[Rfam]
RNA sequence: CCCACUACAAAGUUGUGUCUUUGGUUCUCUGUCUUUGGACACAUAAGAAUUAGCGGUAAAGAAAUAUAGAUUUGGAAAAGUCUGGGGGCAGCUCAUUCCCCAUGGGCUUAAGGUCAGUCAUCCCACAUUG
Numbered sequence: 001c002c003c004a005c006u007a008c009a010a011a012g013u014u015g016u017g018u019c020u021u022u023g024g025u026u027c028u029c030u031g032u033c034u035u036u037g038g039a040c041a042c043a044u045a046a047g048a049a050u051u052a053g054c055g056g057u058a059a060a061g062a063a064a065u066a067u068a069g070a071u072u073u074g075g076a077a078a079a080g081u082c083u084g085g086g087g088g089c090a091g092c093u094c095a096u097u098c099c100c101c102a103u104g105g106g107c108u109u110a111a112g113g114u115c116a117g118u119c120a121u122c123c124c125a126c127a128u129u130g
Base pairs, nucleotide, nucleotide: 002056003055005053006052014043015042016041017040018039019038020037023029024028069122070121072120090108091107092106093105094104095103096102

The family of this 130-nucleotide RNA from Marmota marmota is "Small nucleolar RNA SNORA38". By type it is an H/ACA-box small nucleolar RNA. Its family is annotated with RNA processing, Cajal body and nucleolus in the Gene Ontology. NCBI's taxonomy places the organism under Eukaryota, Craniata, Gnathostomata, Eutheria, Marmota marmota. A search with the family's covariance model found it, with a score of 117 bits.